[Rfam]
RNA sequence: CUGACAGAAGAGAGUGAGCACACAUGGUGCCUUUCUUGCAUGGUGAAUUAAUGGGGGAAGUUCAUGCUUGAAGCUAUGUGUGCUCACUUCUCUCUCUAUUUG
Numbered sequence: 001c002u003g004a005c006a007g008a009a010g011a012g013a014g015u016g017a018g019c020a021c022a023c024a025u026g027g028u029g030c031c032u033u034u035c036u037u038g039c040a041u042g043g044u045g046a047a048u049u050a051a052u053g054g055g056g057g058a059a060g061u062u063c064a065u066g067c068u069u070g071a072a073g074c075u076a077u078g079u080g081u082g083c084u085c086a087c088u089u090c091u092c093u094c095u096c097u098a099u100u101u102g
Stems, first nucleotide, its partner, number of pairs: 001102001003100002006097003010092003013088009023078006